[Rfam]
RNA: SAH (S-adenosyl-L-homocysteine) riboswitch aptamer
Organism: Ramlibacter rhizophilus
RNA sequence: CUAUCCGAGGAGCGUUGCAGCACGUCCACCGUGCGAGGCUCGGAAACCCAUCCGCAACGACGCUCACCCACU
Numbered sequence: 001c002u003a004u005c006c007g008a009g010g011a012g013c014g015u016u017g018c019a020g021c022a023c024g025u026c027c028a029c030c031g032u033g034c035g036a037g038g039c040u041c042g043g044a045a046a047c048c049c050a051u052c053c054g055c056a057a058c059g060a061c062g063c064u065c066a067c068c069c070a071c072u
Stems, first nucleotide, its partner, number of pairs: 002046001004044005021033004